[Rfam]
RNA sequence: AGUCAUAUACUUGUCUCAAAGAUUAAGCCAUGCAUGUCUCAGUGCAUGCCGAAUUAAAAUGAAACCGCUCAUUUAAUCAGUUAUGGUUCAUUAGGUUGUACCCACAUUUACUUAGAUAACUGUAGUAAUUCUAGAGCUAAUACAUGCAAAAUAGAGUCCCGACCAAUGAUGGAAGAGACGCUUUUAUUAGAUCAAAAUCAAUCGAUGGCGAACGGUUAUCCAUCCAUCCACCGUUUAUUUUGGUAACUGAAUAACUGAUCGCACGAUUUUAGCACCAGCGAUGCAUCUUUCAGAUAUUUGCUUUAUCAACUGUCGAUGGUAAGUUCUGCUUAUCAUUGUUACGGGUAACGAGGAAUCAGGAUUUGAUUCCGGAGAGAGAAAAUCUGAAAAACGGCUACCACAUCCAAGGAAGGCAGCAGGCGCGCAAAUUAGUCACUUCCGGCACGGGGAGGUAGUGACGAAAAAUAACAAUACGGAACUCAUCCGAGGACCCGUAAUCGGAAUGAGUGUACUUUAAAUCCUUUAACGAGGAUCCAUUGGAGGACAAGUCUGGUGCUAGCAGCCACGGUAAUUCCAAUUGCAUAUAUUAAAGUUAUUG
Numbered sequence: 001a002g003u004c005a006u007a008u009a010c011u012u013g014u015c016u017c018a019a020a021g022a023u024u025a026a027g028c029c030a031u032g033c034a035u036g037u038c039u040c041a042g043u044g045c046a047u048g049c050c051g052a053a054u055u056a057a058a059a060u061g062a063a064a065c066c067g068c069u070c071a072u073u074u075a076a077u078c079a080g081u082u083a084u085g086g087u088u089c090a091u092u093a094g095g096u097u098g099u100a101c102c103c104a105c106a107u108u109u110a111c112u113u114a115g116a117u118a119a120c121u122g123u124a125g126u127a128a129u130u131c132u133a134g135a136g137c138u139a140a141u142a143c144a145u146g147c148a149a150a151a152u153a154g155a156g157u158c159c160c161g162a163c164c165a166a167u168g169a170u171g172g173a174a175g176a177g178a179c180g181c182u183u184u185u186a187u188u189a190g191a192u193c194a195a196a197a198u199c200a201a202u203c204g205a206u207g208g209c210g211a212a213c214g215g216u217u218a219u220c221c222a223u224c225c226a227u228c229c230a231c232c233g234u235u236u237a238u239u240u241u242g243g244u245a246a247c248u249g250a251a252u253a254a255c256u257g258a259u260c261g262c263a264c265g266a267u268u269u270u271a272g273c274a275c276c277a278g279c280g281a282u283g284c285a286u287c288u289u290u291c292a293g294a295u296a297u298u299u300g301c302u303u304u305a306u307c308a309a310c311u312g313u314c315g316a317u318g319g320u321a322a323g324u325u326c327u328g329c330u331u332a333u334c335a336u337u338g339u340u341a342c343g344g345g346u347a348a349c350g351a352g353g354a355a356u357c358a359g360g361a362u363u364u365g366a367u368u369c370c371g372g373a374g375a376g377a378g379a380a381a382a383u384c385u386g387a388a389a390a391a392c393g394g395c396u397a398c399c400a401c402a403u404c405c406a407a408g409g410a411a412g413g414c415a416g417c418a419g420g421c422g423c424g425c426a427a428a429u430u431a432g433u434c435a436c437u438u439c440c441g442g443c444a445c446g447g448g449g450a451g452g453u454a455g456u457g458a459c460g461a462a463a464a465a466u467a468a469c470a471a472u473a474c475g476g477a478a479c480u481c482a483u484c485c486g487a488g489g490a491c492c493c494g495u496a497a498u499c500g501g502a503a504u505g506a507g508u509g510u511a512c513u514u515u516a517a518a519u520c521c522u523u524u525a526a527c528g529a530g531g532a533u534c535c536a537u538u539g540g541a542g543g544a545c546a547a548g549u550c551u552g553g554u555g556c557u558a559g560c561a562g563c564c565a566c567g568g569u570a571a572u573u574c575c576a577a578u579u580g581c582a583u584a585u586a587u588u589a590a591a592g593u594u595a596u597u598g
Stems, first nucleotide, its partner, number of pairs: 001588003005585004010580001014463001016461002020456001021423001027421003031418003036068002042065002048060001069373002078300003083295002087293002093288004111146001113144001120136002123133003156179003160175001163172002184254005197244004226235001228233001259281004265276001267274001302345003309339002316336008349371002352368001353364004378399001381396001383394001401412001403410002429454001431453001433451001437449005469500001471498001472496005479488003507527002509524001511523001551576003559566001
RNA: Eukaryotic small subunit ribosomal RNA, nucleotides 22 to 619
Organism: Atta cephalotes